RNA sequence: AAGAGGAUCAAGCUGAAUCUUCGGCGGUCGCCGAAGUACGGGGGAUGUGGCUGCCGUUCCGGCGGCUUUUGGUCGUGCUGCGGCUUUCUUGAGCCCGCGCGGCCUUGGGGUUAAGUUGCGCAGCAAUGCUGCGCACCGGGUUGUCUCCGCAAUCCGCACCCGACAACUAACCUCGGAAGCAAACAAAGGGAGGAUUC
Numbered sequence: 001a002a003g004a005g006g007a008u009c010a011a012g013c014u015g016a017a018u019c020u021u022c023g024g025c026g027g028u029c030g031c032c033g034a035a036g037u038a039c040g041g042g043g044g045a046u047g048u049g050g051c052u053g054c055c056g057u058u059c060c061g062g063c064g065g066c067u068u069u070u071g072g073u074c075g076u077g078c079u080g081c082g083g084c085u086u087u088c089u090u091g092a093g094c095c096c097g098c099g100c101g102g103c104c105u106u107g108g109g110g111u112u113a114a115g116u117u118g119c120g121c122a123g124c125a126a127u128g129c130u131g132c133g134c135a136c137c138g139g140g141u142u143g144u145c146u147c148c149g150c151a152a153u154c155c156g157c158a159c160c161c162g163a164c165a166a167c168u169a170a171c172c173u174c175g176g177a178a179g180c181a182a183a184c185a186a187a188g189g190g191a192g193g194a195u196u197c
Base pairs, nucleotide, nucleotide: 012180013179014178019036020035021034022033023032024031025030039175040174041173042172043171048107049106108161109160110159117135118134119133120132138155139154140153141152
c-di-AMP riboswitch aptamer (ydaO/yuaA leader): a 197-nucleotide RNA sequence from Paenalicyclobacillus cellulosilyticus.
The match comes from Rfam's covariance-model search (53 bits).
Lineage of the source: Bacteria > Bacillati > Caryophanales > Alicyclobacillaceae > Paenalicyclobacillus.
Gene Ontology terms of the family: cyclic-di-AMP binding and regulation of gene expression.